[Rfam]
This 101-nucleotide sequence from Acer yangbiense belongs to the Rfam family "MIR477 microRNA precursor family". The family has 3 seed sequences and 63 matches in Rfam 15.1. For this family Rfam cites "Novel and mechanical stress-responsive MicroRNAs in Populus trichocarpa that are absent from Arabidopsis" (Lu et al., Plant Cell, 2005).
RNA sequence: GAAGAUUCCAACUUCCCUCAAAGGCUUCCAAUAUACCAUGCUAUACUAUGUAUUGGCCAAGUAUGGAUAUGUUGGUGGCCUGCGAGGGAAGUUGAACCCUU
Numbered sequence: 001g002a003a004g005a006u007u008c009c010a011a012c013u014u015c016c017c018u019c020a021a022a023g024g025c026u027u028c029c030a031a032u033a034u035a036c037c038a039u040g041c042u043a044u045a046c047u048a049u050g051u052a053u054u055g056g057c058c059a060a061g062u063a064u065g066g067a068u069a070u071g072u073u074g075g076u077g078g079c080c081u082g083c084g085a086g087g088g089a090a091g092u093u094g095a096a097c098c099c100u101u
Stems, first nucleotide, its partner, number of pairs: 003100002009094011022081005028075006